[Rfam]
RNA sequence: CCGUUCAACUCGCCGUCCUGCGCGACGGCUACGGGAG
Number, nucleotide and partner (000 for none) at each position: 001c034002c033003g032004u031005u000006c000007a000008a000009c000010u000011c000012g029013c028014c027015g026016u025017c024018c000019u000020g000021c000022g000023c000024g017025a016026c015027g014028g013029c012030u000031a004032c003033g002034g001035g000036a000037g000
RNA: THF-II riboswitch (folE RNA)